[Rfam]
RNA sequence: UGGGUUGCUCUCUCGACUUAUUUUUGAAAAGGAGAGACAGAAAAUGG
Numbered sequence: 001u002g003g004g005u006u007g008c009u010c011u012c013u014c015g016a017c018u019u020a021u022u023u024u025u026g027a028a029a030a031g032g033a034g035a036g037a038c039a040g041a042a043a044a045u046g047g
Stems, first nucleotide, its partner, number of pairs: 005040003008036005018027003
RNA: Streptococcus sRNA SpR10